[Rfam]
RNA: Small nucleolar RNA SNORD18
Organism: Quercus lobata
RNA sequence: GGGAUAUGAUGAGUAAACCUUUUGGUCCGUGUUUCUGAAUUAACCGUGACUGAUAACAUUUUAGCACUCUCUGAUCUC
Numbered sequence: 001g002g003g004a005u006a007u008g009a010u011g012a013g014u015a016a017a018c019c020u021u022u023u024g025g026u027c028c029g030u031g032u033u034u035c036u037g038a039a040u041u042a043a044c045c046g047u048g049a050c051u052g053a054u055a056a057c058a059u060u061u062u063a064g065c066a067c068u069c070u071c072u073g074a075u076c077u078c
Stems, first nucleotide, its partner, number of pairs: 001078004